[Rfam]
RNA sequence: UCGGAUGAGGGACGUCCUAGACACCGUAAGGGGCCGAAGAAGCAAAGCGUAAGGUAACAUCUUCCUUUCGUGGAAACUGACAGGCAAAAAGGAAGGCGACCUGACGAAUCUUUGGAGAGUGUGCAAAGAAAGCACCACCUACGAGGCUAGAACCAACUGGUAAAAGGACAGAGAA
Number, nucleotide and partner (000 for none) at each position: 001u107002c106003g105004g000005a000006u000007g000008a000009g000010g101011g100012a000013c098014g097015u096016c095017c000018u000019a000020g000021a000022c032023a000024c031025c030026g000027u000028a000029a000030g025031g024032g022033g085034c084035c083036g000037a000038a000039g081040a000041a078042g077043c000044a000045a000046a000047g071048c070049g069050u000051a067052a066053g065054g064055u000056a062057a000058c000059a000060u000061c000062u056063u000064c054065c053066u052067u051068u000069c049070g048071u047072g000073g000074a000075a000076a000077c042078u041079g000080a000081c039082a000083g035084g034085c033086a000087a000088a000089a000090a000091g000092g000093a000094a000095g016096g015097c014098g013099a000100c011101c010102u000103g000104a000105c003106g002107a001108a000109u000110c173111u172112u171113u170114g169115g000116a000117g000118a000119g136120u000121g135122u134123g133124c132125a000126a000127a000128g000129a000130a000131a000132g124133c123134a122135c121136c119137a161138c160139c159140u000141a000142c000143g157144a000145g154146g153147c000148u000149a000150g000151a000152a000153c146154c145155a000156a000157c143158u000159g139160g138161u137162a000163a000164a000165a000166g000167g000168a000169c114170a113171g112172a111173g110174a000175a000
RNA: glycine-GGAnGA riboswitch aptamer